[Rfam]
The record is an 87-nucleotide sequence from Neomoorella humiferrea, which matches "c-di-GMP-I riboswitch aptamer" in Rfam.

RNA sequence: UACCGCUAAAGGCAAACCCCACCGAAAGGGGGGGACGCAAAGCCAUGGGUCUAAGGCUUUUUAAGCUAUGAUCGCCAGGCUGCCGGU
Numbered sequence: 001u002a003c004c005g006c007u008a009a010a011g012g013c014a015a016a017c018c019c020c021a022c023c024g025a026a027a028g029g030g031g032g033g034g035a036c037g038c039a040a041a042g043c044c045a046u047g048g049g050u051c052u053a054a055g056g057c058u059u060u061u062u063a064a065g066c067u068a069u070g071a072u073c074g075c076c077a078g079g080c081u082g083c084c085g086g087u
Base pairs, nucleotide, nucleotide: 012038013037017033018032019031020030022029023028041081042080043079044078046077047076048075049072050071051070056066057065058064059063

The match comes from Rfam's covariance-model search (82 bits). The base pairs follow the family's consensus structure, which is taken from published work.